[Rfam]
RNA sequence: GCGCUCAUAGCUCAGCUGGAUAGAGUGUCUGACUACGAAUCAGAAGGUCGGGAGUUCGAAUCUCUCUGAGCGCA
Numbered sequence: 001g002c003g004c005u006c007a008u009a010g011c012u013c014a015g016c017u018g019g020a021u022a023g024a025g026u027g028u029c030u031g032a033c034u035a036c037g038a039a040u041c042a043g044a045a046g047g048u049c050g051g052g053a054g055u056u057c058g059a060a061u062c063u064c065u066c067u068g069a070g071c072g073c074a
Stems, first nucleotide, its partner, number of pairs: 001073007010026004028044005050066005
This 74-nucleotide sequence from Tindallia californiensis belongs to the Rfam family "tRNA". Rfam classes the family as a transfer RNA. A search with the family's covariance model found it, with a score of 68 bits. From the family's description: Transfer RNA (tRNA) molecules are approximately 80 nucleotides in length. Their secondary structure includes four short double-helical elements and three loops (D, anti-codon, and T loops).